This 164-nucleotide RNA sequence from Catagonus wagneri belongs to the Rfam family "U1 spliceosomal RNA". It scores 127 bits against the family's covariance model. Lineage of the source: Eukaryota > Sarcopterygii > Eutheria > Suina > Catagonus. The base pairs follow the family's consensus structure, which is taken from published work. Clan: U1 clan.
RNA sequence: GUACUGACCUGGCAGGGGAGCUACCAUGAUCACUAAGGCAGUUUUCCCUGGGCGAGCCUUAUCCAUUGCACUCUGGAUGUGCUGACCCCUGCGAUUUUCCCAAUUGUGGGAAACUCGACUGCAUAAUUUGCGGUAGUGGGGGACUGUGUUCACACUUUGCCCUG
Numbered sequence: 001g002u003a004c005u006g007a008c009c010u011g012g013c014a015g016g017g018g019a020g021c022u023a024c025c026a027u028g029a030u031c032a033c034u035a036a037g038g039c040a041g042u043u044u045u046c047c048c049u050g051g052g053c054g055a056g057c058c059u060u061a062u063c064c065a066u067u068g069c070a071c072u073c074u075g076g077a078u079g080u081g082c083u084g085a086c087c088c089c090u091g092c093g094a095u096u097u098u099c100c101c102a103a104u105u106g107u108g109g110g111a112a113a114c115u116c117g118a119c120u121g122c123a124u125a126a127u128u129u130g131c132g133g134u135a136g137u138g139g140g141g142g143a144c145u146g147u148g149u150u151c152a153c154a155c156u157u158u159g160c161c162c163u164g
Base pairs, nucleotide, nucleotide: 012122013121014120015119016048017047018046019045020044023042024041027038050089051088052087054086056083058081060079061078062077063076064075092117093116094115095113096112097111099109100108138163139162140161141160143158146155147154148153